[Rfam]
Annotation: U5 spliceosomal RNA: a 115-nucleotide RNA sequence from Otolemur garnettii.
RNA sequence: AUACUCUGGUUUAUCUUCAGAUUGUAUAAAUCUUUUACUUUUACUAAAGAUUUCCAAGGAGAGGAACAAUUCUGAGUCUUUACCCAACUUUCUGAGGUCUUGCAUCCUUAAGGCU
Dot-bracket structure: ..((((..((((.(((((.........((((((((..........))))))))....))))).))))......)))).................(.((((((......)))))))
Annotation
Rfam links the family to the GO terms spliceosomal tri-snRNP complex assembly and U5 snRNP. It scores 67 bits against the family's covariance model. The family's consensus secondary structure is taken from published work. On this family, see Zwieb, Nucleic Acids Res 1997: "The uRNA database". By type it is a spliceosomal small nuclear RNA.